[Rfam]
RNA sequence: CCAAAUGGAUACUCUGGAGGUCACUCUCCCAGGCUCUGUCCAAGUUGUAUCCAGAUGAUAGGACUCUGCUUCAUGAGGUACAGUCCCUUUCCACAAUGUUGGAAAAGAGGCUGGGCCUUACAUCUGGGCCUGCAUAGUCCCAUGACUUCUCAGAGUCCUGUGGGCAAUAACUGAGGAGACAAACCAUGCAGGAAACAAUG
Numbered sequence: 001c002c003a004a005a006u007g008g009a010u011a012c013u014c015u016g017g018a019g020g021u022c023a024c025u026c027u028c029c030c031a032g033g034c035u036c037u038g039u040c041c042a043a044g045u046u047g048u049a050u051c052c053a054g055a056u057g058a059u060a061g062g063a064c065u066c067u068g069c070u071u072c073a074u075g076a077g078g079u080a081c082a083g084u085c086c087c088u089u090u091c092c093a094c095a096a097u098g099u100u101g102g103a104a105a106a107g108a109g110g111c112u113g114g115g116c117c118u119u120a121c122a123u124c125u126g127g128g129c130c131u132g133c134a135u136a137g138u139c140c141c142a143u144g145a146c147u148u149c150u151c152a153g154a155g156u157c158c159u160g161u162g163g164g165c166a167a168u169a170a171c172u173g174a175g176g177a178g179a180c181a182a183a184c185c186a187u188g189c190a191g192g193a194a195a196c197a198a199u200g
Stems, first nucleotide, its partner, number of pairs: 001102004005097002007041005013033003016027004044094002047091001054086001057081001058079002061074001129192007146178006155165004